The family of this 205-nucleotide RNA sequence from Eubacterium limosum is "raiA RNA". Taxonomically the source falls in Eubacterium limosum (Bacteria, Bacillota, Clostridia, Eubacterium).
RNA sequence: UGGUCCUGUGUUUGUGGUUGAAAGUCGAUGCCAGUCGCAGGCGAAGCGAUCCACGUAAGGCUUUCUAAAAGCGGAAAGCUGAUCAUAGUGCGGCCUAGAUGUAAGACCAGCCGGCGUAAAGCCGAGAGGAGGAGUUGUGAUAUAAACCUUGAGCUAAACUCCCAGCUGGCGAGUGUGGGGGAAAAAACCAGGUCAAGCGGGACAU
Numbered sequence: 001u002g003g004u005c006c007u008g009u010g011u012u013u014g015u016g017g018u019u020g021a022a023a024g025u026c027g028a029u030g031c032c033a034g035u036c037g038c039a040g041g042c043g044a045a046g047c048g049a050u051c052c053a054c055g056u057a058a059g060g061c062u063u064u065c066u067a068a069a070a071g072c073g074g075a076a077a078g079c080u081g082a083u084c085a086u087a088g089u090g091c092g093g094c095c096u097a098g099a100u101g102u103a104a105g106a107c108c109a110g111c112c113g114g115c116g117u118a119a120a121g122c123c124g125a126g127a128g129g130a131g132g133a134g135u136u137g138u139g140a141u142a143u144a145a146a147c148c149u150u151g152a153g154c155u156a157a158a159c160u161c162c163c164a165g166c167u168g169g170c171g172a173g174u175g176u177g178g179g180g181g182a183a184a185a186a187a188c189c190a191g192g193u194c195a196a197g198c199g200g201g202a203c204a205u
Stems, first nucleotide, its partner, number of pairs: 003203007012196003015190005028176003031041001034094006050088001055083001058080002062076003086183001107169005112124004128162004137154002